[Rfam]
Eukaryotic small subunit ribosomal RNA: a 591-nucleotide part of an RNA from Athene cunicularia. Rfam links the family to the GO terms ribosome and structural constituent of ribosome. Rfam 15.1 lists 75,755 matches to the family in 2,556 species. Taxonomically the source falls in Athene (Eukaryota, Sauria, Coelurosauria, Aves). The match comes from Rfam's covariance-model search (960 bits). Pairs were carried over by alignment from the consensus structure, which is taken from published work.
RNA sequence: UACCGGGGUGAUGCUGCCCGUGGAAUACGCAUGUCUCAGAGCUUAAGUGAUCUGUGUGCAAGUAUGCAUGGGCAGUACAGUGAAACCGUGAAUGGCUCCUUAAAUCAGUUACAGUUCCUUUGGUUGCUCCUCUCACACUCUGGAUAACUGGUAACUCUAGCACUGCUACAUGUUGAUGAGUGCCAGCCUCCAGGGACAUGUGCAUUUAUCAGACCAAAACUGACCCAGGCCCGCCUGGCAGUUUUGGUGACUCUAGAUGACCUUGAGCCGAUUGCCCGUCCCCGCGGCGGCAGUGACCCAUUCAGAUGUCUGCCCUAUCAACUUUCAGUGGCACUGACUGUGCCUACCAUGGUGACCACAGGGGAAUCAGUGUUCGAUUCCAGAGAGGGAACCUGAGAAACGGCUACAAUGUCCAAGGAAGGCAGCAGAUGCACAAAUUACCCCCUCCCAACACAGGGAGGUAGUGACAAAAAACAAUACAGGACUCUUUUGAGGCCCUGUAACUGGAAUGAGCGAGGAUCCAUUGGAGGGCAAGUCUGGUGCCAUCAGCCGCGGUAAUUCCAGCUCCAAUAGCAUAUCUUAAAGUUGCUG
Numbered sequence: 001u002a003c004c005g006g007g008g009u010g011a012u013g014c015u016g017c018c019c020g021u022g023g024a025a026u027a028c029g030c031a032u033g034u035c036u037c038a039g040a041g042c043u044u045a046a047g048u049g050a051u052c053u054g055u056g057u058g059c060a061a062g063u064a065u066g067c068a069u070g071g072g073c074a075g076u077a078c079a080g081u082g083a084a085a086c087c088g089u090g091a092a093u094g095g096c097u098c099c100u101u102a103a104a105u106c107a108g109u110u111a112c113a114g115u116u117c118c119u120u121u122g123g124u125u126g127c128u129c130c131u132c133u134c135a136c137a138c139u140c141u142g143g144a145u146a147a148c149u150g151g152u153a154a155c156u157c158u159a160g161c162a163c164u165g166c167u168a169c170a171u172g173u174u175g176a177u178g179a180g181u182g183c184c185a186g187c188c189u190c191c192a193g194g195g196a197c198a199u200g201u202g203c204a205u206u207u208a209u210c211a212g213a214c215c216a217a218a219a220c221u222g223a224c225c226c227a228g229g230c231c232c233g234c235c236u237g238g239c240a241g242u243u244u245u246g247g248u249g250a251c252u253c254u255a256g257a258u259g260a261c262c263u264u265g266a267g268c269c270g271a272u273u274g275c276c277c278g279u280c281c282c283c284g285c286g287g288c289g290g291c292a293g294u295g296a297c298c299c300a301u302u303c304a305g306a307u308g309u310c311u312g313c314c315c316u317a318u319c320a321a322c323u324u325u326c327a328g329u330g331g332c333a334c335u336g337a338c339u340g341u342g343c344c345u346a347c348c349a350u351g352g353u354g355a356c357c358a359c360a361g362g363g364g365a366a367u368c369a370g371u372g373u374u375c376g377a378u379u380c381c382a383g384a385g386a387g388g389g390a391a392c393c394u395g396a397g398a399a400a401c402g403g404c405u406a407c408a409a410u411g412u413c414c415a416a417g418g419a420a421g422g423c424a425g426c427a428g429a430u431g432c433a434c435a436a437a438u439u440a441c442c443c444c445c446u447c448c449c450a451a452c453a454c455a456g457g458g459a460g461g462u463a464g465u466g467a468c469a470a471a472a473a474a475c476a477a478u479a480c481a482g483g484a485c486u487c488u489u490u491u492g493a494g495g496c497c498c499u500g501u502a503a504c505u506g507g508a509a510u511g512a513g514c515g516a517g518g519a520u521c522c523a524u525u526g527g528a529g530g531g532c533a534a535g536u537c538u539g540g541u542g543c544c545a546u547c548a549g550c551c552g553c554g555g556u557a558a559u560u561c562c563a564g565c566u567c568c569a570a571u572a573g574c575a576u577a578u579c580u581u582a583a584a585g586u587u588g589c590u591g
Stems, first nucleotide, its partner, number of pairs: 004020004022581002025578003029574002034472001036470001040465001041432001047430002051427001053425001056089002062086002068081002096385003106312003111307001115305002121300003139172001141170002148160004180201003187194002206260005219248004227236003272293004277289004314362003321353003328350004333345001363379001364375004388407001390405001392403001410421001412419002438463001440462003446458003475506002478502006485494003524570006537564004547552001